[Rfam]
RNA: drz-agam-1 ribozyme
RNA sequence: UUACUACCAAACCCUAUUUCUACCUCUAUGUGGUGAUCGCUGGGAGUUCUUUCUUAAUGGAAAACUACAGACGGGGAAGG
Numbered sequence: 001u002u003a004c005u006a007c008c009a010a011a012c013c014c015u016a017u018u019u020c021u022a023c024c025u026c027u028a029u030g031u032g033g034u035g036a037u038c039g040c041u042g043g044g045a046g047u048u049c050u051u052u053c054u055u056a057a058u059g060g061a062a063a064a065c066u067a068c069a070g071a072c073g074g075g076g077a078a079g080g
Base pairs, nucleotide, nucleotide: 013080014079015078017076018075019074020073022034023033024032045066046065047064048063050061051060053059